Rfam assigns this 238-nucleotide RNA sequence to the family "PAGEV RNA". Rfam's curators put it in the seed alignment. The family's RNA type in Rfam is small RNA.
RNA sequence: CGACGCUUGGAAUCAAGAUGCUUUGGGCCCGGGAAGUAAUAGCUGCCGAUCAAGGGGAUCUCUUCACGGCAGCCGGUAUAGCCGGUUAGGUGCGACCCGCAAGGGCGAGAAGGCAAUGGCAGGGCAGCGUAAAAACCCAACCACGGGCGCUGUCACUGUCCUAAAACCCACCAACCGCCAGACGCCGAAGAGGGCAGGGGGCGCAGUGGUAAACAAUCCCCGAAAGUCUGGAACGCCU
Numbered sequence: 001c002g003a004c005g006c007u008u009g010g011a012a013u014c015a016a017g018a019u020g021c022u023u024u025g026g027g028c029c030c031g032g033g034a035a036g037u038a039a040u041a042g043c044u045g046c047c048g049a050u051c052a053a054g055g056g057g058a059u060c061u062c063u064u065c066a067c068g069g070c071a072g073c074c075g076g077u078a079u080a081g082c083c084g085g086u087u088a089g090g091u092g093c094g095a096c097c098c099g100c101a102a103g104g105g106c107g108a109g110a111a112g113g114c115a116a117u118g119g120c121a122g123g124g125c126a127g128c129g130u131a132a133a134a135a136c137c138c139a140a141c142c143a144c145g146g147g148c149g150c151u152g153u154c155a156c157u158g159u160c161c162u163a164a165a166a167c168c169c170a171c172c173a174a175c176c177g178c179c180a181g182a183c184g185c186c187g188a189a190g191a192g193g194g195c196a197g198g199g200g201g202c203g204c205a206g207u208g209g210u211a212a213a214c215a216a217u218c219c220c221c222g223a224a225a226g227u228c229u230g231g232a233a234c235g236c237c238u
Stems, first nucleotide, its partner, number of pairs: 001031002005028003042073006061191005083177005089172004118160003123154008178231006197221005